[Rfam]
RNA sequence: UUCCCUGGGAGUGGUGGGGGCUAGCCUGGGCUGUGAGUCCGGCCCGGGCUAGCCCCCACCACGCCCAGGGAA
Numbered sequence: 001u002u003c004c005c006u007g008g009g010a011g012u013g014g015u016g017g018g019g020g021c022u023a024g025c026c027u028g029g030g031c032u033g034u035g036a037g038u039c040c041g042g043c044c045c046g047g048g049c050u051a052g053c054c055c056c057c058a059c060c061a062c063g064c065c066c067a068g069g070g071a072a
Stems, first nucleotide, its partner, number of pairs: 001072009011062002016057017
A member of the RNA family "Epstein-Barr virus stable intronic sequence RNA 2" from Sphenodon punctatus, 72 nucleotides long. The family's RNA type in Rfam is non-coding RNA gene. Pairs were carried over by alignment from the consensus structure. The organism belongs to Sphenodon, within Eukaryota.